[Rfam]
RNA sequence: AGUCCCGUGAGGUACUGUGCGUAGGAAGCUUGUAGCAACGCUGCGAGGCAACGAACAGAAACGUCAUAUGAGGCUUAGUCCGAGGAUGAGCGAGCACAAGAUCGCGAAGUCCAGUGAUUCACCUGGAUAGAGUAAAUGACGUGCUUGUGCAGUGAACGUUAAUGUC
Numbered sequence: 001a002g003u004c005c006c007g008u009g010a011g012g013u014a015c016u017g018u019g020c021g022u023a024g025g026a027a028g029c030u031u032g033u034a035g036c037a038a039c040g041c042u043g044c045g046a047g048g049c050a051a052c053g054a055a056c057a058g059a060a061a062c063g064u065c066a067u068a069u070g071a072g073g074c075u076u077a078g079u080c081c082g083a084g085g086a087u088g089a090g091c092g093a094g095c096a097c098a099a100g101a102u103c104g105c106g107a108a109g110u111c112c113a114g115u116g117a118u119u120c121a122c123c124u125g126g127a128u129a130g131a132g133u134a135a136a137u138g139a140c141g142u143g144c145u146u147g148u149g150c151a152g153u154g155a156a157c158g159u160u161a162a163u164g165u166c
Stems, first nucleotide, its partner, number of pairs: 001016003005012002028166001030164001035159002040153006046146005062141006073133003078128005084112004090105004
About this RNA
Shown here is a 166-nucleotide RNA sequence from bacterium F16, a member of the family "Group II catalytic intron D1-D4-3". It scores 122 bits against the family's covariance model. Gene Ontology term of the family: Group II intron splicing. The family has 406 seed sequences and 4,274 matches in Rfam 15.1. On this family, see Bonen and Vogel, Trends Genet 2001: "The ins and outs of group II introns".